[Rfam]
The family of this 517-nucleotide part of an RNA from Lucilia cuprina is "Microsporidia small subunit ribosomal RNA". It scores 758 bits against the family's covariance model. On this family, see Cannone et al., BMC Bioinformatics 2002: "The comparative RNA web (CRW) site: an online database of comparative sequence and structure information for ribosomal, intron, and other RNAs".
RNA sequence: CAGUUAAAAAGCUCGUAGUUGAACCUCGCCGCCGGCUCUAGGUCAUCCUCACGGAUUGUACUUAGCGCUUGCGGUUUUGCCCUACUAGUGCGUGCGUUCGCGUGCGUUCAUAGGGGGCGUUUACUGUGAGAAAAUUAGAGUGUUCAAAGCAGGCGUUUCGCUCGUAUACGUUAGCAUGGAAUAAUAGAAUAGGACGAGGGUUCUAUUUUGUUGGUUCUAGGACCGUCGUAAUGAUUAAUAGGGAUGGUCGGGGGCAUCAGUAUUCAGUAGUAAGAGGUGAAAUUCUUUGAUUUACUGAAGACUAACUGCUGCGAAAGCGUUUGCCAAGGACAUCUUCAUUAAUCAAGAACGAAAGUUAGGGGAUCGAAGACGCUUAGAUACCGUCGUAGUCUUAACCGUAAACUAUGCCGACUCUGAAUCGGCCCCUUGACAUUUAUGGGGGGUCGGCGCAGUGUGAGAAAUCAAAGUUUUUAGGUUCUGGGGGGAGUAUGGUCGCAAGGCUGAAACUUAAAGGAAU
Numbered sequence: 001c002a003g004u005u006a007a008a009a010a011g012c013u014c015g016u017a018g019u020u021g022a023a024c025c026u027c028g029c030c031g032c033c034g035g036c037u038c039u040a041g042g043u044c045a046u047c048c049u050c051a052c053g054g055a056u057u058g059u060a061c062u063u064a065g066c067g068c069u070u071g072c073g074g075u076u077u078u079g080c081c082c083u084a085c086u087a088g089u090g091c092g093u094g095c096g097u098u099c100g101c102g103u104g105c106g107u108u109c110a111u112a113g114g115g116g117g118c119g120u121u122u123a124c125u126g127u128g129a130g131a132a133a134a135u136u137a138g139a140g141u142g143u144u145c146a147a148a149g150c151a152g153g154c155g156u157u158u159c160g161c162u163c164g165u166a167u168a169c170g171u172u173a174g175c176a177u178g179g180a181a182u183a184a185u186a187g188a189a190u191a192g193g194a195c196g197a198g199g200g201u202u203c204u205a206u207u208u209u210g211u212u213g214g215u216u217c218u219a220g221g222a223c224c225g226u227c228g229u230a231a232u233g234a235u236u237a238a239u240a241g242g243g244a245u246g247g248u249c250g251g252g253g254g255c256a257u258c259a260g261u262a263u264u265c266a267g268u269a270g271u272a273a274g275a276g277g278u279g280a281a282a283u284u285c286u287u288u289g290a291u292u293u294a295c296u297g298a299a300g301a302c303u304a305a306c307u308g309c310u311g312c313g314a315a316a317g318c319g320u321u322u323g324c325c326a327a328g329g330a331c332a333u334c335u336u337c338a339u340u341a342a343u344c345a346a347g348a349a350c351g352a353a354a355g356u357u358a359g360g361g362g363a364u365c366g367a368a369g370a371c372g373c374u375u376a377g378a379u380a381c382c383g384u385c386g387u388a389g390u391c392u393u394a395a396c397c398g399u400a401a402a403c404u405a406u407g408c409c410g411a412c413u414c415u416g417a418a419u420c421g422g423c424c425c426c427u428u429g430a431c432a433u434u435u436a437u438g439g440g441g442g443g444u445c446g447g448c449g450c451a452g453u454g455u456g457a458g459a460a461a462u463c464a465a466a467g468u469u470u471u472u473a474g475g476u477u478c479u480g481g482g483g484g485g486a487g488u489a490u491g492g493u494c495g496c497a498a499g500g501c502u503g504a505a506a507c508u509u510a511a512a513g514g515a516a517u
Base pairs, nucleotide, nucleotide: 001480002479003478011350013348014347018343019342020341241337242336243335244333245332246331248329249328253325254324255323256322259303260302263299264298265297266296267295268294269293270292274285275284276283311318312317355396356395357394358393359392360391365389369385370384371383372382407476408475409474410469411468412467414452415451416450419447420446421445422444423443424442425441426440427439428438429437456463457462482509483508484507491502492501493500494499